The record is a 114-nucleotide RNA from Pseudopedobacter saltans, which matches "SAM riboswitch aptamer (S box leader)" in Rfam. Pairs were carried over by alignment from the consensus structure, which is taken from published work.

RNA sequence: CGCUUAUAAAGAAAGACGGAGGGAUUAGACCCUACGAAGUCUUAGCAACCUGUGCUUACAAGGUGCUAAAUUCUACUUGGGAAUAUAUACAAGAAAUCCCGGGACAGAUAAGUG
Numbered sequence: 001c002g003c004u005u006a007u008a009a010a011g012a013a014a015g016a017c018g019g020a021g022g023g024a025u026u027a028g029a030c031c032c033u034a035c036g037a038a039g040u041c042u043u044a045g046c047a048a049c050c051u052g053u054g055c056u057u058a059c060a061a062g063g064u065g066c067u068a069a070a071u072u073c074u075a076c077u078u079g080g081g082a083a084u085a086u087a088u089a090c091a092a093g094a095a096a097u098c099c100c101g102g103g104a105c106a107g108a109u110a111a112g113u114g
Stems, first nucleotide, its partner, number of pairs: 001114007013043005021032003026075004044067004049063002051060003071106001076103006
A search with the family's covariance model found it, with a score of 70 bits.